[Rfam]
RNA sequence: AUCCUGGACAGGAUAUCAUCUUAUACUGUAAGUUUAUCAUAGAGACACUACAGUAUAGAUGAUGUACUAUCCAGGACAC
Numbered sequence: 001a002u003c004c005u006g007g008a009c010a011g012g013a014u015a016u017c018a019u020c021u022u023a024u025a026c027u028g029u030a031a032g033u034u035u036a037u038c039a040u041a042g043a044g045a046c047a048c049u050a051c052a053g054u055a056u057a058g059a060u061g062a063u064g065u066a067c068u069a070u071c072c073a074g075g076a077c078a079c
Stems, first nucleotide, its partner, number of pairs: 007071002010068002013065008022057009032046003